[Rfam]
RNA sequence: UCUGCAGGAUAGUGUGUAUCGGCUUUAUGCUUUCUUCUAUGCAUUUAUUGCCGAAAGUGUUUCCUGCUAUAUUGAUUGAAGGAAAGUGGGCAGUUGGGUUAAGCUUAUAUUCUGUUUUCUCCAACAAUCAUUUUCCUCUCAUGU
Numbered sequence: 001u002c003u004g005c006a007g008g009a010u011a012g013u014g015u016g017u018a019u020c021g022g023c024u025u026u027a028u029g030c031u032u033u034c035u036u037c038u039a040u041g042c043a044u045u046u047a048u049u050g051c052c053g054a055a056a057g058u059g060u061u062u063c064c065u066g067c068u069a070u071a072u073u074g075a076u077u078g079a080a081g082g083a084a085a086g087u088g089g090g091c092a093g094u095u096g097g098g099u100u101a102a103g104c105u106u107a108u109a110u111u112c113u114g115u116u117u118u119c120u121c122c123a124a125c126a127a128u129c130a131u132u133u134u135c136c137u138c139u140c141a142u143g144u
Base pairs, nucleotide, nucleotide: 004067005066006065007064008063009061014044015043016042017041018040019039080137081136082135083134084133085132086131087130088129089128093125094124095123096122
Rfam assigns this 144-nucleotide sequence from Panicum virgatum to the family "small nucleolar RNA snoR135". Its family is annotated with RNA processing and nucleolus in the Gene Ontology. The match comes from Rfam's covariance-model search (117 bits). Rfam classes the family as an H/ACA-box small nucleolar RNA. On this family, see Chen and Wu, Nucleic Acids Res 2009: "Mining small RNA sequencing data: a new approach to identify small nucleolar RNAs in Arabidopsis". The source organism's lineage runs through Eukaryota, Mesangiospermae, Panicinae, Panicum and Panicum sect. Hiantes. The family's consensus secondary structure was predicted with RNAalifold.